About this RNA:
The record is a 72-nucleotide RNA from Balaenoptera musculus, which matches "Small nucleolar RNA SNORD113/SNORD114 family" in Rfam. NCBI's taxonomy places the organism under Eukaryota, Eutheria, Artiodactyla, Balaenopteridae, Balaenoptera. By type it is a C/D-box small nucleolar RNA. Rfam's curators write: The imprinted human domain at 14q32 contains two clusters of tandemly repeated small nucleolar RNAs named 14q(I) and 14q(II) snoRNAs. The family has 59 seed sequences and 5,721 matches in Rfam 15.1.
RNA sequence: UGGUCUGAUGAUGACUAUCCGUGGCAUAUGGGUUGUGUACGAUGAAUACGUGUCUGGAGCUCUGAGGUCUGA
Number, nucleotide and partner (000 for none) at each position: 001u000002g070003g069004u000005c067006u066007g000008a000009u000010g000011a000012u000013g000014a000015c000016u000017a000018u000019c000020c000021g000022u000023g000024g000025c000026a000027u000028a000029u000030g000031g000032g000033u000034u000035g000036u000037g000038u000039a000040c000041g000042a000043u000044g000045a000046a000047u000048a000049c000050g000051u000052g000053u000054c000055u000056g000057g000058a000059g000060c000061u000062c000063u000064g000065a000066g006067g005068u000069c003070u002071g000072a000